[Rfam]
RNA sequence: CCAGGGGGCCGGGCAGCCGCGUUCCUUCGACAGGCUCAGGAUGAGCGGGUCGGAGGUGCGAGGAAAGUCCGGGCUCCACGAAACAAGGGUGGCGGGUAACGCCCGCCGGGUGAGGCUUUCGGGCCGAAGCUCAGGGAAAGUGCCACAGAGAGUAUACCGCCGAUGGCCCCUAAAGGGCACAGGCAAGGGUGAAAGGGUGCGGCAAGAGCGCACCGGGGGACUGGUGACAGGACCCGCAUGGCAAACCCCACCCGGAGCAAGACCAAAUAGGGGUCUCGCGCUGAAAAGCAGGAGUGUUUCGCUCCGAGAGACCCGGGUUGGUUGCUAGAGCGCAGGGAGCAAUCCCUCGCCCAGAUGAAUGGCUGCCGCCGCCGAUAGGUCCUUUUCGAAGGAUACCGUGGGUGGACACAGAACCCGGCUUACAGGCCCCCUGGCACC
Number, nucleotide and partner (000 for none) at each position: 001c434002c433003a432004g431005g430006g429007g428008g427009c426010c425011g423012g367013g366014c365015a364016g363017c362018c361019g000020c060021g059022u058023u000024c056025c055026u054027u053028c052029g051030a050031c049032a000033g000034g000035c000036u000037c000038a000039g000040g000041a000042u000043g000044a000045g000046c000047g000048g000049g031050u030051c029052g028053g027054a026055g025056g024057u000058g022059c021060g020061a000062g000063g000064a000065a421066a420067g419068u000069c418070c417071g416072g415073g414074c257075u256076c255077c254078a000079c000080g000081a000082a000083a299084c000085a297086a000087g253088g252089g251090u250091g249092g106093c105094g104095g103096g102097u000098a000099a000100c000101g000102c096103c095104c094105g093106c092107c134108g132109g131110g130111u129112g000113a000114g000115g000116c000117u000118u000119u000120c000121g000122g000123g000124c000125c000126g000127a000128a000129g111130c110131u109132c108133a000134g107135g248136g247137a000138a000139a000140g246141u245142g242143c241144c240145a000146c000147a000148g000149a000150g000151a000152g000153u000154a000155u000156a000157c188158c187159g184160c183161c182162g000163a000164u179165g178166g000167c176168c000169c000170c000171u000172a000173a000174a000175g000176g167177g000178c165179a164180c000181a000182g161183g160184c159185a000186a000187g158188g157189g000190u000191g000192a000193a000194a000195g000196g214197g213198u212199g211200c210201g209202g000203c000204a000205a000206g000207a000208g000209c201210g200211c199212a198213c197214c196215g237216g235217g234218g233219g000220a000221c230222u229223g228224g000225u000226g000227a000228c223229a222230g221231g000232a000233c218234c217235c216236g000237c215238a000239u000240g144241g143242c142243a000244a000245a141246c140247c136248c135249c091250a090251c089252c088253c087254g077255g076256a075257g074258c000259a000260a000261g323262a322263c321264c320265a000266a000267a000268u000269a000270g000271g314272g313273g312274u311275c310276u309277c000278g000279c000280g000281c000282u000283g000284a000285a000286a000287a000288g000289c000290a000291g305292g304293a303294g302295u301296g000297u085298u000299u083300c000301g295302c294303u293304c292305c291306g000307a000308g000309a276310g275311a274312c273313c272314c271315g000316g000317g000318u000319u000320g264321g263322u262323u261324g000325c000326u000327a000328g000329a000330g350331c349332g348333c000334a347335g346336g345337g344338a343339g000340c000341a000342a000343u338344c337345c336346c335347u334348c332349g331350c330351c000352c000353a000354g000355a000356u000357g000358a000359a000360u000361g018362g017363c016364u015365g014366c013367c012368g000369c000370c000371g000372c000373c000374g000375a000376u000377a000378g000379g000380u000381c000382c000383u000384u000385u000386u000387c000388g000389a000390a000391g000392g000393a000394u000395a000396c000397c000398g000399u000400g000401g000402g000403u000404g000405g000406a000407c000408a000409c000410a000411g000412a000413a000414c073415c072416c071417g070418g069419c067420u066421u065422a000423c011424a000425g010426g009427c008428c007429c006430c005431c004432u003433g002434g001435c000436a000437c000438c000
Notes: Bacterial RNase P class A: a 438-nucleotide RNA sequence from Alteraurantiacibacter aquimixticola. Taxonomically the source falls in Alteraurantiacibacter (Bacteria, Pseudomonadota, Sphingomonadales, Erythrobacteraceae). Rfam classes the family as a ribozyme. The match comes from Rfam's covariance-model search (273 bits). Rfam describes the family as follows. Ribonuclease P (RNase P) is a ubiquitous endoribonuclease, found in archaea, bacteria and eukarya as well as chloroplasts and mitochondria.